This 149-nucleotide RNA from Shigella dysenteriae belongs to the Rfam family "sok antitoxin (CssrC)". Rfam links the family to the GO term mRNA binding. Rfam classes the family as an antitoxin RNA. The organism belongs to Shigella dysenteriae, within Bacteria. The literature on the family includes a 2011 paper in PLoS One by Peng et al., "An integrated approach for finding overlooked genes in Shigella". Also identified in Shigella as CssrC.
RNA sequence: GGGUGCCUGAAGCUUUCCGGUUUCAGGUUUACUCUGAGGUCUGGAAAGAUGAAGCCCCAGGAGAUAUUUCUAUCAACCCUAGGGCUGCCACUCCAAACCAGACAAUUUGGAUGGUAGUUCCUUCUUCGCAUGGAGGCAAUAUAAACAUG
Numbered sequence: 001g002g003g004u005g006c007c008u009g010a011a012g013c014u015u016u017c018c019g020g021u022u023u024c025a026g027g028u029u030u031a032c033u034c035u036g037a038g039g040u041c042u043g044g045a046a047a048g049a050u051g052a053a054g055c056c057c058c059a060g061g062a063g064a065u066a067u068u069u070c071u072a073u074c075a076a077c078c079c080u081a082g083g084g085c086u087g088c089c090a091c092u093c094c095a096a097a098c099c100a101g102a103c104a105a106u107u108u109g110g111a112u113g114g115u116a117g118u119u120c121c122u123u124c125u126u127c128g129c130a131u132g133g134a135g136g137c138a139a140u141a142u143a144a145a146c147a148u149g
Base pairs, nucleotide, nucleotide: 001058002057003056005055006054008053011050013048014047015046016045017044018043019042020041022039024038027035059080060079061078063074064073065072066071082120083119084118085117088114089113090112092110093109095107096106125147130142